[Rfam]
RNA sequence: AGCAUCUGUGUGAGUGUUUGUCUAAUGUGUAGACAAAGACUUUGAGACAGGUGCAAAAAUAAAUUCUCUUUUGCAACCCAGAACUCGUUGUUCUGUAUGAGUUCUGAUGCAUAUGAGAAGGAACAUG
Numbered sequence: 001a002g003c004a005u006c007u008g009u010g011u012g013a014g015u016g017u018u019u020g021u022c023u024a025a026u027g028u029g030u031a032g033a034c035a036a037a038g039a040c041u042u043u044g045a046g047a048c049a050g051g052u053g054c055a056a057a058a059a060u061a062a063a064u065u066c067u068c069u070u071u072u073g074c075a076a077c078c079c080a081g082a083a084c085u086c087g088u089u090g091u092u093c094u095g096u097a098u099g100a101g102u103u104c105u106g107a108u109g110c111a112u113a114u115g116a117g118a119a120g121g122a123a124c125a126u127g
Stems, first nucleotide, its partner, number of pairs: 002054008011045001014040002017037005026031001064123004069118005079106010
Small nucleolar RNA SNORA40: a 127-nucleotide RNA from Sorex araneus.
About the family: The snoRNA ACA 40 belongs to the H/ACA family of snoRNAs and guides the pseudouridylation of 28S rRNA subunit at position U4565. NB This family has a high threshold value to exclude a large number of closely related sequences that do not appear to have conserved H and ACA boxes, and may be pseudogenes.
The literature on the family includes a 1997 paper in J Mol Biol by Ofengand and Bakin, "Mapping to nucleotide resolution of pseudouridine residues in large subunit ribosomal RNAs from representative eukaryotes, prokaryotes, archaebacteria, mitochondria and chloroplasts".
Gene Ontology terms of the family: nucleolus and RNA processing.